[Rfam]
RNA sequence: GUCCGUGCUGAAGGCCUGUUGCCUGGGCUACAAACGGAGGACUGUGUUCCUACUCCCUUCGCCCAGGGGAAAGUCCCCGGACCUCCGGCAGAGAGUGCCACGUGCGCGUGCACGUCGACCUUCCCCGCAUCUCACAAAUAACUCCGCUAAGAAGCGAGCCGGCCCCUCUCCGGGCUGGGGAGCCGAGCGGCGUGUGGCGGCGGGGGUCAUCCGUCAUCUGACCUAGUUACGCAGGCAGCGCGCGCCCGCGUGCCAACCGAACGGGGCUCAUUCUCAGCACGGC
Numbered sequence: 001g002u003c004c005g006u007g008c009u010g011a012a013g014g015c016c017u018g019u020u021g022c023c024u025g026g027g028c029u030a031c032a033a034a035c036g037g038a039g040g041a042c043u044g045u046g047u048u049c050c051u052a053c054u055c056c057c058u059u060c061g062c063c064c065a066g067g068g069g070a071a072a073g074u075c076c077c078c079g080g081a082c083c084u085c086c087g088g089c090a091g092a093g094a095g096u097g098c099c100a101c102g103u104g105c106g107c108g109u110g111c112a113c114g115u116c117g118a119c120c121u122u123c124c125c126c127g128c129a130u131c132u133c134a135c136a137a138a139u140a141a142c143u144c145c146g147c148u149a150a151g152a153a154g155c156g157a158g159c160c161g162g163c164c165c166c167u168c169u170c171c172g173g174g175c176u177g178g179g180g181a182g183c184c185g186a187g188c189g190g191c192g193u194g195u196g197g198c199g200g201c202g203g204g205g206g207u208c209a210u211c212c213g214u215c216a217u218c219u220g221a222c223c224u225a226g227u228u229a230c231g232c233a234g235g236c237a238g239c240g241c242g243c244g245c246c247c248g249c250g251u252g253c254c255a256a257c258c259g260a261a262c263g264g265g266g267c268u269c270a271u272u273c274u275c276a277g278c279a280c281g282g283c
Base pairs, nucleotide, nucleotide: 003282004281005280006279007278008277009276010275011274014236015235016234017233018232019231022067023066024065025064026063027062028061038051039050040049041048072268073267075266076265077264078263087099088098089097090096100115101114102113103112104111105110117208118207119206123204124203125202128199132197133196134195135194144190145189146188147187174183175182176181238253239252240251241250242249243248
About this RNA:
The family of this 283-nucleotide sequence from Sorex araneus is "RNase MRP". Clan: RNaseP clan. Rfam's curators put it in the seed alignment. Taxonomically the source falls in Sorex (Eukaryota, Opisthokonta, Dipnotetrapodomorpha, Soricinae). Rfam links the family to the GO terms ribonuclease MRP activity, rRNA processing and ribonuclease MRP complex.